[Rfam]
RNA sequence: CAGGACAAUGGUGAGUGCCGGUGCCUGCCCUGGGGCCGUCCCUGCGCAGGGGCCGGGUGCUCACCGCAUCUG
Numbered sequence: 001c002a003g004g005a006c007a008a009u010g011g012u013g014a015g016u017g018c019c020g021g022u023g024c025c026u027g028c029c030c031u032g033g034g035g036c037c038g039u040c041c042c043u044g045c046g047c048a049g050g051g052g053c054c055g056g057g058u059g060c061u062c063a064c065c066g067c068a069u070c071u072g
Stems, first nucleotide, its partner, number of pairs: 001072004009066011020054003026048003030044001032042003
This 72-nucleotide RNA from Homo sapiens belongs to the Rfam family "mir-1909 microRNA precursor family". Pairs were carried over by alignment from the consensus structure, which was predicted with RNAalifold. NCBI's taxonomy places the organism under Eukaryota, Deuterostomia, Boreoeutheria, Primates, Homo.